RNA: Eukaryotic large subunit ribosomal RNA, nucleotides 974 to 1061
RNA sequence: UUUUCAGUUUUAUAAGAUAAAGCAAAUGAUUAGAGACCUUGGGGUUGAAACAACCUUAAUCUAUUCUCAAACUUUAAAUAUAUAAGAA
Numbered sequence: 001u002u003u004u005c006a007g008u009u010u011u012a013u014a015a016g017a018u019a020a021a022g023c024a025a026a027u028g029a030u031u032a033g034a035g036a037c038c039u040u041g042g043g044g045u046u047g048a049a050a051c052a053a054c055c056u057u058a059a060u061c062u063a064u065u066c067u068c069a070a071a072c073u074u075u076a077a078a079u080a081u082a083u084a085a086g087a088a
Base pairs, nucleotide, nucleotide: 008087009086010085011084012083013082014081020075021073022072027069028068029067032064034062035061036060039059040058041057042056043055044054046052